[Rfam]
RNA: MIR6288 microRNA precursor family
RNA sequence: CCAAAACUUCUACUUGUCAUUUUAUAAAUGAUUCUUAGUGUGUUAAAAUUUUAUAAGAACCAAUUAAAAAAUGACAAGUGGGAGUUUUGA
Numbered sequence: 001c002c003a004a005a006a007c008u009u010c011u012a013c014u015u016g017u018c019a020u021u022u023u024a025u026a027a028a029u030g031a032u033u034c035u036u037a038g039u040g041u042g043u044u045a046a047a048a049u050u051u052u053a054u055a056a057g058a059a060c061c062a063a064u065u066a067a068a069a070a071a072u073g074a075c076a077a078g079u080g081g082g083a084g085u086u087u088u089g090a
Stems, first nucleotide, its partner, number of pairs: 002089022025066003029062002032059006